[Rfam]
RNA sequence: AUAUUCUUAGGCCCGGUCUUGUGGCAAGAACUGAGUAGUUCGUUAACUCGUACCCGGUUCUUGUCACAAGACCGAGUAUAUGAAUAU
Number, nucleotide and partner (000 for none) at each position: 001a087002u086003a085004u084005u083006c082007u000008u080009a079010g000011g077012c076013c000014c074015g073016g072017u071018c070019u069020u068021g067022u000023g065024g064025c063026a062027a061028g060029a059030a058031c057032u056033g055034a000035g053036u052037a000038g000039u000040u000041c000042g000043u000044u000045a000046a000047c000048u000049c000050g000051u000052a036053c035054c000055c033056g032057g031058u030059u029060c028061u027062u026063g025064u024065c023066a000067c021068a020069a019070g018071a017072c016073c015074g014075a000076g012077u011078a000079u009080a008081u000082g006083a005084a004085u003086a002087u001
Shown here is an 87-nucleotide RNA from Oryza punctata, a member of the family "MIR1861 microRNA precursor family". NCBI's taxonomy places the organism under Eukaryota, Streptophytina, Liliopsida, Oryzoideae, Oryza. Its family is annotated with miRNA-mediated post-transcriptional gene silencing and RISC complex in the Gene Ontology. Pairs were carried over by alignment from the consensus structure, which was predicted with RNAalifold. The match comes from Rfam's covariance-model search (92 bits). The family has 13 seed sequences and 210 matches in Rfam 15.1.